Overview
A member of the RNA family "Vault RNA" from Bagarius yarrelli, 84 nucleotides long. The family's RNA type in Rfam is non-coding RNA gene. For this family Rfam cites "Evolution of Vault RNAs" (Stadler et al., Mol Biol Evol, 2009).
RNA sequence: GCGUCUGCGUAGCCGAGUGGUUACUUCUCGAAUACAACGUCUGGUGUUACCGGGUUCAAACCACUGGCGCUGUCUGACGUUUUA
Numbered sequence: 001g002c003g004u005c006u007g008c009g010u011a012g013c014c015g016a017g018u019g020g021u022u023a024c025u026u027c028u029c030g031a032a033u034a035c036a037a038c039g040u041c042u043g044g045u046g047u048u049a050c051c052g053g054g055u056u057c058a059a060a061c062c063a064c065u066g067g068c069g070c071u072g073u074c075u076g077a078c079g080u081u082u083u084a
Stems, first nucleotide, its partner, number of pairs: 002079004007074001012068004017064004025060002